[Rfam]
RNA sequence: UUGGAUGAAACACAUGUUGGUCCCACACUUUAGAAAUGGAUCUCACAUAAAAUGGUAGAACCCACAUGUGUUUCAUCCAA
Numbered sequence: 001u002u003g004g005a006u007g008a009a010a011c012a013c014a015u016g017u018u019g020g021u022c023c024c025a026c027a028c029u030u031u032a033g034a035a036a037u038g039g040a041u042c043u044c045a046c047a048u049a050a051a052a053u054g055g056u057a058g059a060a061c062c063c064a065c066a067u068g069u070g071u072u073u074c075a076u077c078c079a080a
Stems, first nucleotide, its partner, number of pairs: 001080017023058001025056001026054002029051004
MIR5269 microRNA precursor family: an 80-nucleotide RNA from Lathyrus oleraceus. Pairs were carried over by alignment from the consensus structure, which was predicted with RNAalifold. Gene Ontology terms of the family: RISC complex and miRNA-mediated post-transcriptional gene silencing.